[Rfam]
RNA sequence: UGCAAUAGAAAUAGGUAACUCAAGGGUGGUCAGCACGCUCCCCAAGAAAGGGGGUGCUGCUGGUGGCGGUAUCCGAAGCUUUAAUGUUUGCGUGUGCGUUUGCAAGCUUAAUAGUCGCAGUUCUGUCAUUUAACCAAAAAAAAUAACCCACCCUUGAGUUGACCAACCGUAGGUGGAUUAUCCCUUUAAUAGCUGAUCCCCUUGAUAGGACCUUCUAUUGCAUGGACCGUUUGGUGUUACCAGCACCAAACG
Numbered sequence: 001u002g003c004a005a006u007a008g009a010a011a012u013a014g015g016u017a018a019c020u021c022a023a024g025g026g027u028g029g030u031c032a033g034c035a036c037g038c039u040c041c042c043c044a045a046g047a048a049a050g051g052g053g054g055u056g057c058u059g060c061u062g063g064u065g066g067c068g069g070u071a072u073c074c075g076a077a078g079c080u081u082u083a084a085u086g087u088u089u090g091c092g093u094g095u096g097c098g099u100u101u102g103c104a105a106g107c108u109u110a111a112u113a114g115u116c117g118c119a120g121u122u123c124u125g126u127c128a129u130u131u132a133a134c135c136a137a138a139a140a141a142a143a144u145a146a147c148c149c150a151c152c153c154u155u156g157a158g159u160u161g162a163c164c165a166a167c168c169g170u171a172g173g174u175g176g177a178u179u180a181u182c183c184c185u186u187u188a189a190u191a192g193c194u195g196a197u198c199c200c201c202u203u204g205a206u207a208g209g210a211c212c213u214u215c216u217a218u219u220g221c222a223u224g225g226a227c228c229g230u231u232u233g234g235u236g237u238u239a240c241c242a243g244c245a246c247c248a249a250a251c252g
Stems, first nucleotide, its partner, number of pairs: 001222005007216003012195003016191002019158008028148003036056002039054005065127005071121001078093002101119003169181002197210003228252003232248007
RNA: BsrG